[Rfam]
RNA sequence: ACAUACAAAGGCGAUGGAGUUCGCCAAAACCGCCCAAAAAGCUAAUGACUCCUGCUCAAUU
Numbered sequence: 001a002c003a004u005a006c007a008a009a010g011g012c013g014a015u016g017g018a019g020u021u022c023g024c025c026a027a028a029a030c031c032g033c034c035c036a037a038a039a040a041g042c043u044a045a046u047g048a049c050u051c052c053u054g055c056u057c058a059a060u061u
Stems, first nucleotide, its partner, number of pairs: 010025004016052006032042002
Annotation: Shown here is a 61-nucleotide sequence from Gillisia sp. Hel1_33_143, a member of the family "Fluoride riboswitch aptamer (crcB RNA motif)".